[Rfam]
RNA sequence: UGAUGUUAAAUUGACUCUAGUAGGGAGUCCGCUUCGUCGCGACUCCCUAAUCGAGUCAGGUUGACCUCUUC
Numbered sequence: 001u002g003a004u005g006u007u008a009a010a011u012u013g014a015c016u017c018u019a020g021u022a023g024g025g026a027g028u029c030c031g032c033u034u035c036g037u038c039g040c041g042a043c044u045c046c047c048u049a050a051u052c053g054a055g056u057c058a059g060g061u062u063g064a065c066c067u068c069u070u071c
Base pairs, nucleotide, nucleotide: 011059012058013057014056015055016054017053021049022048023047024046025045026044027043028042029041
Shown here is a 71-nucleotide sequence from Leptidea sinapis, a member of the family "mir-929 microRNA precursor family". NCBI's taxonomy places the organism under Eukaryota, Eumetazoa, Altocrustacea, Aparaglossata, Leptidea. Gene Ontology terms of the family: RISC complex and miRNA-mediated post-transcriptional gene silencing.